This 79-nucleotide sequence from Physcomitrium patens belongs to the Rfam family "Small nucleolar RNA SNORD34". It scores 44 bits against the family's covariance model. Pairs were carried over by alignment from the consensus structure, which was predicted with PFOLD. Rfam classes the family as a C/D-box small nucleolar RNA. From the family's description: snoRNA U34 is found in intron 5 of the ribosomal protein L13a gene in humans.
RNA sequence: GGUGGCCAAUGAUGAUCACAAACUUACCUACAUUGCCUGAAUCAUGUGAUGUAAUCUUAUCUAUAACCCUGAGGCCACC
Numbered sequence: 001g002g003u004g005g006c007c008a009a010u011g012a013u014g015a016u017c018a019c020a021a022a023c024u025u026a027c028c029u030a031c032a033u034u035g036c037c038u039g040a041a042u043c044a045u046g047u048g049a050u051g052u053a054a055u056c057u058u059a060u061c062u063a064u065a066a067c068c069c070u071g072a073g074g075c076c077a078c079c
Stems, first nucleotide, its partner, number of pairs: 001079002004076004